Annotation:
Rfam assigns this 114-nucleotide sequence from Ladona fulva to the family "Potassium channel RNA editing signal". The source organism's lineage runs through Eukaryota, Opisthokonta, Allotriocarida, Insecta and Ladona. For this family Rfam cites "Control of human potassium channel inactivation by editing of a small mRNA hairpin" (Bhalla et al., Nat Struct Mol Biol, 2004). It is annotated as a cis-regulatory element. A search with the family's covariance model found it, with a score of 101 bits. About the family: This family represents a group of sequences related to the human potassium channel Kv1.1 hairpin element which directs the efficient modification of an adenosine to inosine by an adenosine deaminase acting on RNA (ADAR). The ADAR modification causes an isoleucine/valine recoding event which lies in the ion-conducting pore of the potassium channel. It is thought that this editing event targets the process of fast inactivation and allows a more rapid recovery from inactivation at negative potentials.
RNA sequence: GUCGGCUACGGAGACAUGGCUCCCAAGACAUACGUCGGAAUGUUCGUUGGCGCCCUCUGUGCUCUGGCCGGCGUGCUCACCAUCGCCCUCCCCGUCCCUGUCAUCGUCUCCAAC
Numbered sequence: 001g002u003c004g005g006c007u008a009c010g011g012a013g014a015c016a017u018g019g020c021u022c023c024c025a026a027g028a029c030a031u032a033c034g035u036c037g038g039a040a041u042g043u044u045c046g047u048u049g050g051c052g053c054c055c056u057c058u059g060u061g062c063u064c065u066g067g068c069c070g071g072c073g074u075g076c077u078c079a080c081c082a083u084c085g086c087c088c089u090c091c092c093c094g095u096c097c098c099u100g101u102c103a104u105c106g107u108c109u110c111c112a113a114c
Base pairs, nucleotide, nucleotide: 001114002113004111005110008107009106010105011104013102014101015100016099018097019096021094037077038076040074049063050062051061